This 58-nucleotide RNA from Phocoenobacter uteri belongs to the Rfam family "L31-Gammaproteobacteria ribosomal protein leader".
RNA sequence: CGUGUGGUGUUGGGGUACAUUUUGUACGGCUCAAUGGCGACACGGUCUCAACAGAGGU
Number, nucleotide and partner (000 for none) at each position: 001c044002g043003u042004g041005u040006g000007g038008u037009g000010u000011u033012g032013g031014g030015g000016u000017a000018c000019a000020u000021u000022u000023u000024g000025u000026a000027c000028g000029g000030c014031u013032c012033a011034a000035u000036g000037g008038c007039g000040a005041c004042a003043c002044g001045g000046u000047c000048u000049c000050a000051a000052c000053a000054g000055a000056g000057g000058u000
Pairs were carried over by alignment from the consensus structure, which is taken from published work.